[Rfam]
Nucleotides: 132
Base pairs, nucleotide, nucleotide: 011026012025013024014023015022016021028062029061030060036055037054038053040050041049042048043047098119099118100117102115103114104113105112106111
Number, partner (000 for none) and nucleotide at each position: 001000u002000u003000u004000u005000g006000a007000a008000a009000g010000a011026a012025g013024a014023a015022g016021c017000a018000c019000c020000c021016g022015c023014u024013u025012c026011u027000c028062a029061c030060c031000u032000g033000u034000a035000u036055g037054g038053c039000a040050c041049u042048c043047a044000u045000g046000a047043u048042g049041a050040g051000c052000a053038g054037c055036u056000g057000a058000c059000c060030g061029g062028u063000u064000a065000c066000g067000a068000u069000u070000a071000g072000u073000u074000a075000a076000u077000c078000u079000g080000a081000c082000a083000g084000u085000a086000u087000g088000u089000c090000u091000u092000a093000u094000u095000a096000u097000g098119g099118g100117c101000g102115g103114g104113u105112g106111u107000g108000u109000g110000u111106a112105c113104a114103c115102c116000g117100g118099u119098c120000u121000u122000u123000u124000u125000u126000a127000u128000u129000g130000c131000c132000u
Ribosomal protein L20 leader: a 132-nucleotide RNA from Bacillus sp. FJAT-27916. Rfam's curators write: This family is a putative r-protein leader autoregulatory structure found in B. subtilis and other low-GC Gram-positive bacteria. It scores 64 bits against the family's covariance model.